[Rfam]
The family of this 285-nucleotide RNA sequence from Oryctes borbonicus is "Metazoan signal recognition particle RNA". The family has 91 seed sequences and 383,523 matches in Rfam 15.1. On this family, see Wild et al., Curr Opin Struct Biol 2002: "Towards the structure of the mammalian signal recognition particle". Rfam classes the family as a non-coding RNA gene. Its Rfam clan is "SRP clan". From the family's description: The signal recognition particle (SRP) is a universally conserved ribonucleoprotein. It is involved in the co-translational targeting of proteins to membranes. Taxonomically the source falls in Oryctes (Eukaryota, Eumetazoa, Endopterygota, Polyphaga). Pairs were carried over by alignment from the consensus structure, which is taken from published work.
RNA sequence: ACUUUAAGUGAAUCCAGCUGCUUGGAAGUCGGAUUCAGUGGAUGGUUUGAGGUCAGGAGCCCUGGCGUAGGGUAUCUCACGUUGACUGGGCGUCCGCGCUAAGCCCGGCGUCAAUAUGGUCGAACCGGAGGAGUCCGGUGGCGGCCAGGUUUGCCAAGGAGGGGUGCACUGGGCCAGGUGGGAAACCGAGCAGCCAAAAGUCCCCGCGCUGAGCAGUAGCGGGAUCGCGCCCGAGAAUGGGAGCCCUGCGACAGCCUGACCAACACAGCCUAGACCUGAGUCUUU
Numbered sequence: 001a002c003u004u005u006a007a008g009u010g011a012a013u014c015c016a017g018c019u020g021c022u023u024g025g026a027a028g029u030c031g032g033a034u035u036c037a038g039u040g041g042a043u044g045g046u047u048u049g050a051g052g053u054c055a056g057g058a059g060c061c062c063u064g065g066c067g068u069a070g071g072g073u074a075u076c077u078c079a080c081g082u083u084g085a086c087u088g089g090g091c092g093u094c095c096g097c098g099c100u101a102a103g104c105c106c107g108g109c110g111u112c113a114a115u116a117u118g119g120u121c122g123a124a125c126c127g128g129a130g131g132a133g134u135c136c137g138g139u140g141g142c143g144g145c146c147a148g149g150u151u152u153g154c155c156a157a158g159g160a161g162g163g164g165u166g167c168a169c170u171g172g173g174c175c176a177g178g179u180g181g182g183a184a185a186c187c188g189a190g191c192a193g194c195c196a197a198a199a200g201u202c203c204c205c206g207c208g209c210u211g212a213g214c215a216g217u218a219g220c221g222g223g224a225u226c227g228c229g230c231c232c233g234a235g236a237a238u239g240g241g242a243g244c245c246c247u248g249c250g251a252c253a254g255c256c257u258g259a260c261c262a263a264c265a266c267a268g269c270c271u272a273g274a275c276c277u278g279a280g281u282c283u284u285u
Base pairs, nucleotide, nucleotide: 001029002028003027013026014025015024031283032282033281034280035279036278037277038276043272044270045269046268047267051261052260053259054258055257056256057255062254063253064252066250067249068248069247070246071245072244073243076241077240078239079238082235087233088232089231090230091229092228093227094223095222097221098220099219100218101217103214104213106211107210108209109208110207111206113151114150115149117147118146119145120144121143122142124139125138126137127136128135129134154158161204162203163202164201165200170197172195173194174193179188180187181186